[Rfam]
RNA: Small nucleolar RNA Z152/R70/R12/
RNA sequence: AAUGCAAUGUUGAUAUUGAGGAUUUUGGCAGUGCUGACAUCAGUUGUCGUGAGCUUUCAAUCCAAAAAAUGACUUCUCUUUCCAAUGAGCAUU
Numbered sequence: 001a002a003u004g005c006a007a008u009g010u011u012g013a014u015a016u017u018g019a020g021g022a023u024u025u026u027g028g029c030a031g032u033g034c035u036g037a038c039a040u041c042a043g044u045u046g047u048c049g050u051g052a053g054c055u056u057u058c059a060a061u062c063c064a065a066a067a068a069a070u071g072a073c074u075u076c077u078c079u080u081u082c083c084a085a086u087g088a089g090c091a092u093u
Base pairs, nucleotide, nucleotide: 001093002092003091004090005089
Dot-bracket structure: (((((...................................................................................)))))